[Rfam]
RNA sequence: AUUGCGAUCGCCGAAAAGCAAAUAGAGUAGGCA
Number, nucleotide and partner (000 for none) at each position: 001a000002u000003u020004g019005c018006g000007a000008u000009c000010g032011c031012c030013g000014a000015a000016a000017a000018g005019c004020a003021a000022a000023u000024a000025g000026a000027g000028u000029a000030g012031g011032c010033a000
DUF805b RNA: a 33-nucleotide RNA.
It is one of the family's seed sequences.
It is annotated as a cis-regulatory element.
The family's consensus secondary structure is taken from published work.